RNA sequence: GUUUACUUGUCGGAGUGCCAUAAGGCUGAGACCGUUUAUUCGGGAUCCGUUGAACCUGAUCAGAUUAGUAUCUGCGAAGGGAACAAGAGAAGAUAUCUA
Dot-bracket structure: .....(((((((((.((((....)))......((......)))..)))).....(((...((((......))))...)))..)))))............

TPP riboswitch aptamer (THI element): a 99-nucleotide sequence from Vibrio aquimaris.
The base pairs follow the family's consensus structure, which is taken from published work.